[Rfam]
RNA: t44 RNA
Organism: Legionella londiniensis
RNA sequence: UUGUGCGCAUUUUAACGACACACACGUUUCGGCACAUGCGAUGGGGUCCCGCUGGGGUAUCGUAUGGGAAGCGUGGAGGCUCAAC
Numbered sequence: 001u002u003g004u005g006c007g008c009a010u011u012u013u014a015a016c017g018a019c020a021c022a023c024a025c026g027u028u029u030c031g032g033c034a035c036a037u038g039c040g041a042u043g044g045g046g047u048c049c050c051g052c053u054g055g056g057g058u059a060u061c062g063u064a065u066g067g068g069a070a071g072c073g074u075g076g077a078g079g080c081u082c083a084a085c
Stems, first nucleotide, its partner, number of pairs: 023075008035066009048057003